Notes
The record is a 332-nucleotide sequence from Diceros bicornis, which matches "TrkB IRES" in Rfam. A search with the family's covariance model found it, with a score of 244 bits. Rfam links the family to the GO term ribosome binding. The source organism's lineage runs through Eukaryota, Bilateria, Chordata, Rhinocerotidae and Diceros bicornis.

[Rfam]
Nucleotides: 332
Stems, first nucleotide, its partner, number of pairs: 001278004006273002010269001021043003026036003045264003049260001051259003057111001060108003065101002067098001069096003073093002078087002113158005119153001121152003128146003134140002163253001165251003170247001172245003177241001182238001184236003188232002193201002206230002209227001213225002281328007289320001291318001293315002299309002
Number, partner (000 for none) and nucleotide at each position: 001278u002277c003276c004275c005000a006273g007272u008000g009000c010269g011000c012000g013000u014000c015000u016000a017000g018000c019000a020000a021043g022042g023041a024000g025000c026036c027035u028034g029000c030000g031000c032000c033000c034028c035027a036026g037000a038000g039000a040000g041023u042022c043021c044000c045264g046263g047262g048000a049260g050000c051259g052258c053257c054000g055000c056000c057111g058000g059000c060108c061107g062106g063000u064000g065101c066100c067098c068000g069096g070095c071094g072000c073093g074092c075000c076000a077000g078087g079086c080000c081000a082000u083000g084000c085000a086079g087078c088000g089000g090000c091000u092074g093073c094071c095070g096069c097000g098067g099000c100066g101065g102000a103000g104000c105000u106062c107061c108060g109000a110000g111057c112000g113158g114157c115156g116155g117154u118000a119153g120000c121152g122151c123150c124000c125000c126000c127000u128146g129145u130144g131000a132000g133000g134140c135139g136000g137000c138000c139135c140134g141000a142000g143000a144130u145129g146128c147000c148000c149000c150123g151122g152121c153119c154117a155116c156115u157114g158113u159000g160000a161000a162000c163253g164000g165251u166250g167249c168000c169000a170247c171000c172245c173244g174243c175000c176000a177241g178000c179000a180000c181000a182238c183000g184236c185235u186234c187000a188232g189231c190000u191000c192000c193201g194200g195000a196000c197000a198000c199000g200194c201193u202000c203000u204000g205000c206230u207229c208000u209227g210000c211000g212000c213225g214224u215000c216000c217000g218000c219000g220000a221000c222000a223000a224214g225213c226000a227209c228000c229207g230206a231189g232188u233000a234186g235185a236184g237000a238182g239000a240000g241177c242000g243174g244173c245172g246000a247170g248000c249167g250166c251165g252000g253163u254000a255000a256000a257053g258052g259051c260049c261000a262047c263046c264045u265000a266000g267000c268000a269010u270000u271000g272007g273006c274000a275004g276003g277002g278001g279000u280000g281328g282327c283326c284325a285324g286323c287322c288000g289320g290000u291318g292000c293315a294314g295000c296000g297000c298000a299309g300308g301000g302000u303000c304000a305000c306000u307000a308300c309299u310000c311000a312000g313000u314294c315293u316000g317000a318291c319000u320289c321000g322287g323286g324285c325284u326283g327282g328281c329000a330000c331000u332000g